[Rfam]
RNA sequence: AGUGGCUACCCGCACCACGUGCGGAAGAAUGAACAUUGGAAUGGGGAAUCUU
Number, nucleotide and partner (000 for none) at each position: 001a000002g000003u000004g051005g050006c000007u000008a000009c045010c044011c043012g042013c000014a000015c039016c038017a037018c000019g000020u000021g036022c000023g034024g000025a000026a000027g000028a000029a000030u000031g000032a000033a000034c023035a000036u021037u017038g016039g015040a000041a000042u012043g011044g010045g009046g000047a000048a000049u000050c005051u004052u000